[Rfam]
Description
Small nucleolar RNA SNORA9: a 133-nucleotide sequence from Callithrix jacchus. The base pairs follow the family's consensus structure, which was predicted with PFOLD. The source organism's lineage runs through Eukaryota, Eumetazoa, Vertebrata, Amniota and Callithrix. By type it is an H/ACA-box small nucleolar RNA. About the family: ACA9 is a member of the H/ACA class of snoRNA that guide the sites of modification of uridines to pseudouridines. Its family is annotated with RNA processing and nucleolus in the Gene Ontology.
RNA sequence: UAGCAAGACUCCAGCAUGCUUGGGUGUGCAGUGACCCUAUGCAUUCCUACAGUGCUUGCCAGAGCAGUUUUGAAAUGCUUUGAGGCCUUGCCCUGUUCUAUCCAGAGCAAGGAUAUAGAAAUUUCAGAGAAUU
Numbered sequence: 001u002a003g004c005a006a007g008a009c010u011c012c013a014g015c016a017u018g019c020u021u022g023g024g025u026g027u028g029c030a031g032u033g034a035c036c037c038u039a040u041g042c043a044u045u046c047c048u049a050c051a052g053u054g055c056u057u058g059c060c061a062g063a064g065c066a067g068u069u070u071u072g073a074a075a076u077g078c079u080u081u082g083a084g085g086c087c088u089u090g091c092c093c094u095g096u097u098c099u100a101u102c103c104a105g106a107g108c109a110a111g112g113a114u115a116u117a118g119a120a121a122u123u124u125c126a127g128a129g130a131a132u133u
Base pairs, nucleotide, nucleotide: 003059004058005057006056007055017043018042019041022037023036024035025034071126072125073124074123075122086112087111088110089109090108091107093105094104095103